[Rfam]
RNA sequence: CAAUGUACGUGCGACUGGCGGAUCAGUGGAGUUUACCACAGGGAGCACGUUACCGAAGAAGAGCCGACCGCCUGGGUACUGUAC
Numbered sequence: 001c002a003a004u005g006u007a008c009g010u011g012c013g014a015c016u017g018g019c020g021g022a023u024c025a026g027u028g029g030a031g032u033u034u035a036c037c038a039c040a041g042g043g044a045g046c047a048c049g050u051u052a053c054c055g056a057a058g059a060a061g062a063g064c065c066g067a068c069c070g071c072c073u074g075g076g077u078a079c080u081g082u083a084c
Base pairs, nucleotide, nucleotide: 004052005051007050008049009048010047011046012045015042016041017072018071019070020069021068026039027038028037029036061079063077064076065075
A member of the RNA family "ZMP/ZTP riboswitch aptamer (pfl RNA motif)" from Diplocloster agilis, 84 nucleotides long. The family's consensus secondary structure is taken from published work. The source organism's lineage runs through Bacteria, Clostridia, Lachnospirales, Lachnospiraceae and Diplocloster. Gene Ontology terms of the family: one-carbon metabolic process and regulation of purine nucleotide biosynthetic process.